Rfam assigns this 158-nucleotide RNA from Ferrovibrio terrae to the family "6S / SsrS RNA".
RNA sequence: CGGGUACUGCCCGGUGCGUGGGUUUUCAUAACCCUGGGGCCAAUGCUCAUCUCUACGGGAGCUGUCCCUGCCGAGACCCUGGUCUCGAUCAUACGGUGCCCACCUGGUACGCCAGGCCACAGAGGUUUGUACAUACUUACGGCCAGGGUGGUCCCGUC
Numbered sequence: 001c002g003g004g005u006a007c008u009g010c011c012c013g014g015u016g017c018g019u020g021g022g023u024u025u026u027c028a029u030a031a032c033c034c035u036g037g038g039g040c041c042a043a044u045g046c047u048c049a050u051c052u053c054u055a056c057g058g059g060a061g062c063u064g065u066c067c068c069u070g071c072c073g074a075g076a077c078c079c080u081g082g083u084c085u086c087g088a089u090c091a092u093a094c095g096g097u098g099c100c101c102a103c104c105u106g107g108u109a110c111g112c113c114a115g116g117c118c119a120c121a122g123a124g125g126u127u128u129g130u131a132c133a134u135a136c137u138u139a140c141g142g143c144c145a146g147g148g149u150g151g152u153c154c155c156g157u158c
Base pairs, nucleotide, nucleotide: 003155004154006152007151008150009149010148011147013144014143015142017141018140019139031126032125033124034122036120038118039117040116041115057101058100059099061097062096063095064094065093070089072087073086074085075084076083077082

Record summary: Taxonomically the source falls in Ferrovibrio (Bacteria, Pseudomonadati, Pseudomonadota, Rhodospirillales). E. coli 6S RNA was the first non coding RNA to be sequenced, but its function was unknown until recently. It consists of 184 nucleotides that fold into an extended hairpin structure with a large single-stranded internal bulge.